[Rfam]
RNA sequence: CCUCCGCUCUCCCCGCACAGGAGAGCGGAACGAGGUACCGCGCUCUCUGCCCUGACUGCGCCGGUGCCUCUCCCCCGGCCGGGGGCACCGCACACCGCCGGCCGAGCCGGCCGCCCGCGAGGGCGGCCCUACUCCGGGCUGCGGUGCUGGUCGGGCUGAGGGUCCCGGCCCGGCGC
Numbered sequence: 001c002c003u004c005c006g007c008u009c010u011c012c013c014c015g016c017a018c019a020g021g022a023g024a025g026c027g028g029a030a031c032g033a034g035g036u037a038c039c040g041c042g043c044u045c046u047c048u049g050c051c052c053u054g055a056c057u058g059c060g061c062c063g064g065u066g067c068c069u070c071u072c073c074c075c076c077g078g079c080c081g082g083g084g085g086c087a088c089c090g091c092a093c094a095c096c097g098c099c100g101g102c103c104g105a106g107c108c109g110g111c112c113g114c115c116c117g118c119g120a121g122g123g124c125g126g127c128c129c130u131a132c133u134c135c136g137g138g139c140u141g142c143g144g145u146g147c148u149g150g151u152c153g154g155g156c157u158g159a160g161g162g163u164c165c166c167g168g169c170c171c172g173g174c175g176c
Stems, first nucleotide, its partner, number of pairs: 003029004008024005032070005038064003042059002044055002075126003079122002081118001084115003130146004135141002149170007
Streptomyces sRNA scr5239: a 176-nucleotide RNA sequence.
A search with the family's covariance model found it, with a score of 94 bits.
A reference for the family is Vockenhuber et al. (2015), "Identification of metE as a second target of the sRNA scr5239 in Streptomyces coelicolor", PLoS One.